[Rfam]
This 78-nucleotide RNA from Cynara cardunculus belongs to the Rfam family "Small nucleolar RNA snoR8a". The family's consensus secondary structure was predicted with WAR. The family has 7 seed sequences and 956 matches in Rfam 15.1. Gene Ontology terms of the family: RNA processing and nucleolus. A search with the family's covariance model found it, with a score of 68 bits. Taxonomically the source falls in Cynara cardunculus subsp. cardunculus (Eukaryota, Streptophytina, Mesangiospermae, Cardueae). By type it is a C/D-box small nucleolar RNA.
RNA sequence: UGAGUUGCAGUGAUUAUAAACAAUUCCUCGUACUGAAUGGCAUGAUAGACAUCUUUCACCCAUAGAAUAUGAGCAACU
Numbered sequence: 001u002g003a004g005u006u007g008c009a010g011u012g013a014u015u016a017u018a019a020a021c022a023a024u025u026c027c028u029c030g031u032a033c034u035g036a037a038u039g040g041c042a043u044g045a046u047a048g049a050c051a052u053c054u055u056u057c058a059c060c061c062a063u064a065g066a067a068u069a070u071g072a073g074c075a076a077c078u
Base pairs, nucleotide, nucleotide: 003078004077006075007074